[Rfam]
RNA sequence: UUGCAUGUAGCACCCCGGGCUUCUCUGAAAAAACGAAUUGGAUGAAGAAGAAAGCCCCAAUGCUCGUGCUAAAUCAGAUAUACAGCACUCAAGUGUUGCAGUUCAGCCUCUUUAUACGUUUUCUAUGCCGCUUCUGUGUCAAAUUGACGGCUACAGAU
Numbered sequence: 001u002u003g004c005a006u007g008u009a010g011c012a013c014c015c016c017g018g019g020c021u022u023c024u025c026u027g028a029a030a031a032a033a034c035g036a037a038u039u040g041g042a043u044g045a046a047g048a049a050g051a052a053a054g055c056c057c058c059a060a061u062g063c064u065c066g067u068g069c070u071a072a073a074u075c076a077g078a079u080a081u082a083c084a085g086c087a088c089u090c091a092a093g094u095g096u097u098g099c100a101g102u103u104c105a106g107c108c109u110c111u112u113u114a115u116a117c118g119u120u121u122u123c124u125a126u127g128c129c130g131c132u133u134c135u136g137u138g139u140c141a142a143a144u145u146g147a148c149g150g151c152u153a154c155a156g157a158u
Stems, first nucleotide, its partner, number of pairs: 003069005010063002017057005022051002024048003085151002089147003094141002097138005106129001108127001